[Rfam]
RNA: SAM riboswitch aptamer (S box leader)
RNA sequence: UUCUUAUCUAGAGUGGUGGAGGGACUGGCCCUUUGAAGCCCGGCAACCGGUUAUAUAAACACGGUGCUAAUUCCAGCAGAGCAAAAAAGCUCAGGAAGAUGAGAA
Numbered sequence: 001u002u003c004u005u006a007u008c009u010a011g012a013g014u015g016g017u018g019g020a021g022g023g024a025c026u027g028g029c030c031c032u033u034u035g036a037a038g039c040c041c042g043g044c045a046a047c048c049g050g051u052u053a054u055a056u057a058a059a060c061a062c063g064g065u066g067c068u069a070a071u072u073c074c075a076g077c078a079g080a081g082c083a084a085a086a087a088a089g090c091u092c093a094g095g096a097a098g099a100u101g102a103g104a105a
Stems, first nucleotide, its partner, number of pairs: 001105008013041001015040003021031003025076004042068004047064002049060001051058002072097001077094001079092004